[Rfam]
RNA: Small nucleolar RNA SNORA33
RNA sequence: AAGCCAGCCAUUGAUUGCUUCCCUGAGAGUAUUUUCAGAAUUUAAGAAAAAAAGCUGGCAAUAGUAAAGCUAUGUUAUGAGCCUUAAAGAUAGUUGUGACCAUUAAGGUCCCUGAAAAUGGUUACAGCU
Dot-bracket structure: ..(((((........((..................)).................))))).........((((........(((((((.(.(.......).).))))))).........)))).......